[Rfam]
RNA sequence: CCAAAGGCUCUUUUCAGAGCCACCCAUAUUCUCUAGAAAAGAGCCG
Number, nucleotide and partner (000 for none) at each position: 001c000002c000003a000004a000005a000006g021007g020008c019009u018010c017011u016012u000013u000014u000015c000016a011017g010018a009019g008020c007021c006022a000023c000024c000025c000026a000027u000028a000029u000030u000031c000032u000033c000034u000035a000036g000037a000038a000039a000040a000041g000042a000043g000044c000045c000046g000